[Rfam]
RNA sequence: GUGCCUGUGGGAUGAAUAGGUCCCAAUAUUUACCACCAUUUCAUUCACUUUGUCAACUAAAACUCAUGUUUUUAGCUGAUCAUUGCGGAUGGGAAAUAC
Numbered sequence: 001g002u003g004c005c006u007g008u009g010g011g012a013u014g015a016a017u018a019g020g021u022c023c024c025a026a027u028a029u030u031u032a033c034c035a036c037c038a039u040u041u042c043a044u045u046c047a048c049u050u051u052g053u054c055a056a057c058u059a060a061a062a063c064u065c066a067u068g069u070u071u072u073u074a075g076c077u078g079a080u081c082a083u084u085g086c087g088g089a090u091g092g093g094a095a096a097u098a099c
Base pairs, nucleotide, nucleotide: 036092037091038090039089040088052080053079054078055077057075058074059073